Nucleotides: 193
Stems, first nucleotide, its partner, number of pairs: 004042003012035003016031006056186006062081002065078005085134005094129004100125002104119003136172002139169009150159003
Number, partner (000 for none) and nucleotide at each position: 001000c002000c003000g004042c005041g006040c007000c008000c009000g010000c011000u012035a013034c014033c015000u016031g017030a018029a019028a020027g021026c022000c023000a024000a025000g026021g027020c028019u029018u030017u031016c032000u033014g034013g035012u036000c037000u038000g039000u040006g041005c042004g043000a044000c045000u046000u047000u048000g049000a050000a051000u052000c053000u054000g055000g056186u057185c058184g059183u060182g061181c062081c063080g064000c065078u066077g067076g068075c069074c070000c071000a072000g073000u074069g075068g076067c077066c078065a079000c080063c081062g082000c083000c084000a085134u086133g087132c088131g089130c090000a091000u092000c093000a094129g095128a096127g097126a098000u099000a100125c101124c102000g103000c104119c105118g106117g107000u108000c109000u110000a111000a112000a113000g114000c115000g116000u117106c118105c119104g120000c121000g122000u123000a124101g125100g126097u127096c128095u129094c130089g131088c132087g133086c134085a135000g136172u137171u138000u139169c140168c141167g142166u143165g144164c145163u146162g147161a148000u149000c150159g151158g152157c153000u154000u155000c156000g157152g158151c159150c160000u161147u162146c163145g164144g165143c166142g167141c168140g169139g170000c171137g172136a173000c174000g175000u176000a177000g178000a179000u180000a181061g182060c183059a184058c185057g186056a187000c188000a189000g190000g191000u192000c193000g
Record summary
Shown here is a 193-nucleotide sequence from Pseudomonas sp. M47T1, a member of the family "RT-15 RNA". The organism belongs to Pseudomonas, within Bacteria. It is annotated as a small RNA. Pairs were carried over by alignment from the consensus structure, which is taken from published work. It is one of the family's seed sequences.